This 165-nucleotide RNA belongs to the Rfam family "Group II catalytic intron D1-D4-3". About the family: Group II introns are found in rRNA, tRNA and mRNA of organelles in fungi, plants and protists, and also in mRNA in bacteria.

Nucleotides: 165
Base pairs, nucleotide, nucleotide: 001016002015003014004013005012006011028165030163031162037157041152042151043150044149045148046147047145048144049143050142051141063140064139065138066137067136068135074132075131076130079127080126081125082124083123084122085113086112087111088110091106092105093104094103
Number, partner (000 for none) and nucleotide at each position: 001016g002015a003014u004013c005012u006011c007000g008000u009000g010000a011006g012005g013004g014003g015002u016001u017000g018000u019000c020000u021000g022000a023000a024000g025000g026000a027000a028165g029000c030163c031162g032000g033000a034000g035000u036000g037157c038000a039000a040000a041152g042151c043150u044149a045148u046147g047145a048144g049143c050142c051141g052000a053000c054000g055000a056000a057000c058000a059000g060000a061000a062000a063140c064139g065138g066137u067136a068135u069000a070000c071000g072000a073000g074132g075131c076130c077000c078000a079127g080126u081125u082124u083123c084122c085113g086112g087111g088110u089000a090000a091106g092105u093104c094103a095000g096000c097000a098000c099000a100000a101000c102000a103094u104093g105092a106091c107000a108000a109000a110088g111087c112086c113085c114000u115000g116000g117000g118000u119000u120000u121000a122084g123083g124082a125081g126080a127079u128000a129000g130076g131075g132074u133000a134000a135068a136067u137066g138065c139064c140063g141051c142050g143049g144048u145047u146000g147046u148045g149044u150043a151042g152041c153000g154000a155000a156000a157037g158000a159000u160000c161000a162031c163030g164000u165028u